RNA sequence: GAACUAAACGGGAAAAGUUGUAUGCUAUAUGUCAAUGUGUAUAUCAUAAGCGUAUAGCUUUUCCCCUUAGUCU
Numbered sequence: 001g002a003a004c005u006a007a008a009c010g011g012g013a014a015a016a017g018u019u020g021u022a023u024g025c026u027a028u029a030u031g032u033c034a035a036u037g038u039g040u041a042u043a044u045c046a047u048a049a050g051c052g053u054a055u056a057g058c059u060u061u062u063c064c065c066c067u068u069a070g071u072c073u
Base pairs, nucleotide, nucleotide: 003071004070005069006068007067010065011064012063014061015060018057019056020055021054022053025050026049028048029047030046031045
Rfam assigns this 73-nucleotide sequence from Manduca sexta to the family "mir-965 microRNA precursor family". The organism belongs to Manduca, within Eukaryota. The literature on the family includes a 2012 paper in Bioorg Khim by Huang et al., "The regulation of silkworm fibroin L chain production by miRNA-965 and miRNA-1926 in insect cells".